[Rfam]
RNA sequence: GGGCAACCGUGAUGACAGGUUCAGUCUGUAUGUGUAAUGGGUUUCAUUACUACAUGAAGACACCAGUCCCUCUAAGCUGAUGUUGCCG
Numbered sequence: 001g002g003g004c005a006a007c008c009g010u011g012a013u014g015a016c017a018g019g020u021u022c023a024g025u026c027u028g029u030a031u032g033u034g035u036a037a038u039g040g041g042u043u044u045c046a047u048u049a050c051u052a053c054a055u056g057a058a059g060a061c062a063c064c065a066g067u068c069c070c071u072c073u074a075a076g077c078u079g080a081u082g083u084u085g086c087c088g
Base pairs, nucleotide, nucleotide: 002087003086004085005084006083007082
The family of this 88-nucleotide RNA sequence from Ornithorhynchus anatinus is "Small nucleolar RNA SNORD127".
Rfam 15.1 lists 541 matches to the family in 527 species.
By type it is a C/D-box small nucleolar RNA.
On this family, see Yang et al., Nucleic Acids Res 2006: "snoSeeker: an advanced computational package for screening of guide and orphan snoRNA genes in the human genome".
Gene Ontology terms of the family: nucleolus and RNA processing.
Pairs were carried over by alignment from the consensus structure, which was predicted with WAR.